RNA sequence: AGCGUUAUUCUAGAUUAGAAUGGGCACUGUUGAUUGGUGGCCAGAAUUAGUCAGUGUGGCUAAAAUUGACACAUAGGUCACACUUCCAUCACAGUAAACAUGUAUAGUGAUAACAACAAGACCUGUAACAUUU
Dot-bracket structure: .((..(((............(((.(((.........))).)))..........)))..))............(((((..........(((((..............)))))..........))))).......

A member of the RNA family "Small nucleolar RNA SNORA1" from Cavia porcellus, 133 nucleotides long.
Rfam 15.1 lists 1,282 matches to the family in 515 species.
ACA1 is a member of the H/ACA class of snoRNA that guide the sites of modification of uridines to pseudouridines.
Lineage of the source: Eukaryota > Opisthokonta > Metazoa > Dipnotetrapodomorpha > Cavia.